[Rfam]
RNA sequence: UGAUAGCUGUUCCUCUUACUGCUUGGAGCCUAAGCAGUAGGAUUUGGUCUAUCAUAUACAAAGCUGGCUUGUCUUCACUCAGGGCACCAUGAGGAUAGGUGGGCUAUCCACACUAGUGCCUUCUGAUUUUUGCCAAGUCAAACAAUU
Numbered sequence: 001u002g003a004u005a006g007c008u009g010u011u012c013c014u015c016u017u018a019c020u021g022c023u024u025g026g027a028g029c030c031u032a033a034g035c036a037g038u039a040g041g042a043u044u045u046g047g048u049c050u051a052u053c054a055u056a057u058a059c060a061a062a063g064c065u066g067g068c069u070u071g072u073c074u075u076c077a078c079u080c081a082g083g084g085c086a087c088c089a090u091g092a093g094g095a096u097a098g099g100u101g102g103g104c105u106a107u108c109c110a111c112a113c114u115a116g117u118g119c120c121u122u123c124u125g126a127u128u129u130u131u132g133c134c135a136a137g138u139c140a141a142a143c144a145a146u147u
Stems, first nucleotide, its partner, number of pairs: 001054006008047001014042005020036004066139006079126005084119004093109005

Rfam assigns this 147-nucleotide sequence from Nannospalax galili to the family "Small nucleolar RNA SNORA79". The family's RNA type in Rfam is H/ACA-box small nucleolar RNA. The base pairs follow the family's consensus structure, which was predicted with RNAalifold. About the family: ACA65 (SNORA79) is a member of the H/ACA class of snoRNAs that guide the sites of modification of uridines to pseudouridines. For this family Rfam cites "A computational screen for mammalian pseudouridylation guide H/ACA RNAs" (Schattner et al., RNA, 2006).